[Rfam]
RNA sequence: CCUGAUGUUCAGCCAUCAGUGGCCUAUGGGCUGUGGCGGCCUCCGCAAGGGACCGUCUAGAGCGCCCGGACAAUGUACCCCUGCGCAAGCAGCGGAAUCUUUCUGUGAGGAAUGAUUCCGGAGUCUGCCAGCUACAACGCGGAUCAGGGU
Numbered sequence: 001c002c003u004g005a006u007g008u009u010c011a012g013c014c015a016u017c018a019g020u021g022g023c024c025u026a027u028g029g030g031c032u033g034u035g036g037c038g039g040c041c042u043c044c045g046c047a048a049g050g051g052a053c054c055g056u057c058u059a060g061a062g063c064g065c066c067c068g069g070a071c072a073a074u075g076u077a078c079c080c081c082u083g084c085g086c087a088a089g090c091a092g093c094g095g096a097a098u099c100u101u102u103c104u105g106u107g108a109g110g111a112a113u114g115a116u117u118c119c120g121g122a123g124u125c126u127g128c129c130a131g132c133u134a135c136a137a138c139g140c141g142g143a144u145c146a147g148g149g150u
Stems, first nucleotide, its partner, number of pairs: 002019006027068005035057005041051001043050002081092004093120004103110002124143005
A member of the RNA family "Group II catalytic intron D1-D4-7", 150 nucleotides long.
Gene Ontology term of the family: Group II intron splicing.